The record is a 154-nucleotide RNA from Plasmodium falciparum, which matches "Plasmodium RNA of unknown function RUF6-5" in Rfam.
By type it is a small RNA.
The family's consensus secondary structure was predicted with WAR.

RNA sequence: AGCUGCCUCAGUAGCCCAGUCGUUAGGUAUGUAACUUUUCCUUGUGAGAACGUUGGUUCGACUCCGCUUGCCGACAAUUUCAUAAGAAAAGUUGCAGAUCGAGCUGCUGAGCGUUAAGAGGGCCAUGGCGCACUGGAAAUACGUAACACCUGAU
Dot-bracket structure: ....(((....((((.((((.(((.(((.((((((.(((.(((((((((..((((((.((....))...))))))..))))))))).))))))))).))).))).))))...)))).(.....)..))).........................